[Rfam]
RNA sequence: GGCCGGGUGUCUGCGGCUAUACAAUACCCGAAAGGGGAAGGCCGUAGGCGGGACCAGUGACCGUGUUCAAACACCCGGUCUCGCCCCU
Numbered sequence: 001g002g003c004c005g006g007g008u009g010u011c012u013g014c015g016g017c018u019a020u021a022c023a024a025u026a027c028c029c030g031a032a033a034g035g036g037g038a039a040g041g042c043c044g045u046a047g048g049c050g051g052g053a054c055c056a057g058u059g060a061c062c063g064u065g066u067u068c069a070a071a072c073a074c075c076c077g078g079u080c081u082c083g084c085c086c087c088u
Stems, first nucleotide, its partner, number of pairs: 001080009012046004017041002027036003048064004
Record summary
This 88-nucleotide RNA sequence from Rhodomicrobium vannielii belongs to the Rfam family "sRNA-Xcc1". On this family, see Chen et al., RNA Biol 2011: "sRNA-Xcc1, an integron-encoded transposon- and plasmid-transferred trans-acting sRNA, is under the positive control of the key virulence regulators HrpG and HrpX of Xanthomonas campestris pathovar campestris". A search with the family's covariance model found it, with a score of 67 bits.